[Rfam]
RNA sequence: GGGCGGUUAAACGUCGCGCGACGGCCCGCCGAAAGGAUGAGCCCGCCGGACGGCGGCCGGGAACGAGUAGGCGGGUGCCGCCC
Numbered sequence: 001g002g003g004c005g006g007u008u009a010a011a012c013g014u015c016g017c018g019c020g021a022c023g024g025c026c027c028g029c030c031g032a033a034a035g036g037a038u039g040a041g042c043c044c045g046c047c048g049g050a051c052g053g054c055g056g057c058c059g060g061g062a063a064c065g066a067g068u069a070g071g072c073g074g075g076u077g078c079c080g081c082c083c
Stems, first nucleotide, its partner, number of pairs: 001083006024076007043056005

The family of this 83-nucleotide sequence is "DUF3800-X RNA".
It is annotated as a small RNA.
The family's consensus secondary structure is taken from published work.